Shown here is a 111-nucleotide RNA from Anaeromonas frigoriresistens, a member of the family "TPP riboswitch aptamer (THI element)". The family's consensus secondary structure is taken from published work.
RNA sequence: AAUAGAAAUCUGGGGAGCUAGAAGGAUCUAGCUGAGAGGAAGCUUAAUUAGUUUCGACCCAUAAAACCUGCACUGGGUAAUGCCAGCGAAGGGAGAAUAUUGUCUGAUUUU
Numbered sequence: 001a002a003u004a005g006a007a008a009u010c011u012g013g014g015g016a017g018c019u020a021g022a023a024g025g026a027u028c029u030a031g032c033u034g035a036g037a038g039g040a041a042g043c044u045u046a047a048u049u050a051g052u053u054u055c056g057a058c059c060c061a062u063a064a065a066a067c068c069u070g071c072a073c074u075g076g077g078u079a080a081u082g083c084c085a086g087c088g089a090a091g092g093g094a095g096a097a098u099a100u101u102g103u104c105u106g107a108u109u110u111u
Stems, first nucleotide, its partner, number of pairs: 007098001009096002011061004017032005039055005067092003073086004